[Rfam]
RNA: c-di-GMP-I riboswitch aptamer
Organism: Gemmatimonas sp.
Nucleotides: 087
Base pairs, nucleotide, nucleotide: 012037013036017032018031019030020029021028022027041080042079043078045077046076047075048072049071050070055067056066057065058064
Number, partner (000 for none) and nucleotide at each position: 001000a002000g003000g004000u005000g006000c007000u008000c009000a010000g011000a012037g013036c014000a015000a016000a017032g018031c019030c020029g021028c022027c023000g024000a025000a026000a027022g028021g029020c030019g031018g032017u033000g034000a035000c036013g037012c038000g039000g040000a041080g042079c043078c044000a045077c046076g047075g048072g049071g050070c051000u052000g053000a054000a055067g056066g057065c058064g059000a060000g061000a062000a063000u064058c065057g066056c067055c068000a069000u070050g071049c072048c073000a074000g075047c076046c077045g078043g079042g080041c081000c082000a083000c084000c085000a086000g087000c